[Rfam]
RNA sequence: UGGUAGAUGCACCCUGAUUUGCUCUCCCUGGCUCGCUUUUUCGAGUCGGGGAUUUUUUUU
Numbered sequence: 001u002g003g004u005a006g007a008u009g010c011a012c013c014c015u016g017a018u019u020u021g022c023u024c025u026c027c028c029u030g031g032c033u034c035g036c037u038u039u040u041u042c043g044a045g046u047c048g049g050g051g052a053u054u055u056u057u058u059u060u
Stems, first nucleotide, its partner, number of pairs: 002013003025052011

Record summary
Rfam assigns this 60-nucleotide RNA from Lusitaniella coriacea to the family "Nitrogen stress-induced RNA 1". The pairing is the family consensus, mapped onto this sequence. NCBI's taxonomy places the organism under Bacteria, Bacillati, Cyanobacteriota, Cyanophyceae, Lusitaniella coriacea. For this family Rfam cites "Heterocyst-specific transcription of NsiR1, a non-coding RNA encoded in a tandem array of direct repeats in cyanobacteria" (Ionescu et al., J Mol Biol, 2010). Rfam 15.1 lists 962 matches to the family in 163 species. It is annotated as a small RNA.